[Rfam]
RNA sequence: AUAUUUUAAGGGCAAACCUGCUGAAAAGCAGGGACGCAAAGUUUGGAGUCUAAGGUAUUGAUUACUAGGACCGUUCAACUGCUAUG
Numbered sequence: 001a002u003a004u005u006u007u008a009a010g011g012g013c014a015a016a017c018c019u020g021c022u023g024a025a026a027a028g029c030a031g032g033g034a035c036g037c038a039a040a041g042u043u044u045g046g047a048g049u050c051u052a053a054g055g056u057a058u059u060g061a062u063u064a065c066u067a068g069g070a071c072c073g074u075u076c077a078a079c080u081g082c083u084a085u086g
Base pairs, nucleotide, nucleotide: 012037013036017032018031019030020029021028022027040080041079042078043077045076046075047074048071049070050069055065056064057063
Description: c-di-GMP-I riboswitch aptamer: an 86-nucleotide sequence from Dethiosulfatibacter aminovorans. The family's consensus secondary structure is taken from published work. The source organism's lineage runs through Bacteria, Bacillota, Tissierellia, Dethiosulfatibacter and Dethiosulfatibacter aminovorans.